[Rfam]
RNA sequence: AUUCAUCGCUAGGGGUGCCCGGUUUAAGAGGAGGCGGGCUGAGAAUAACCCUUGGAACCUGUACGGAUAAUGCCGGCGUAGGGAAGCGAAUUUCUGCUUUC
Numbered sequence: 001a002u003u004c005a006u007c008g009c010u011a012g013g014g015g016u017g018c019c020c021g022g023u024u025u026a027a028g029a030g031g032a033g034g035c036g037g038g039c040u041g042a043g044a045a046u047a048a049c050c051c052u053u054g055g056a057a058c059c060u061g062u063a064c065g066g067a068u069a070a071u072g073c074c075g076g077c078g079u080a081g082g083g084a085a086g087c088g089a090a091u092u093u094c095u096g097c098u099u100u101c
Stems, first nucleotide, its partner, number of pairs: 006089005011052004017039005058082004064075003
Rfam assigns this 101-nucleotide sequence from Verrucomicrobia bacterium S94 to the family "TPP riboswitch aptamer (THI element)".
The organism belongs to Verrucomicrobiota, within Bacteria.
A search with the family's covariance model found it, with a score of 71 bits.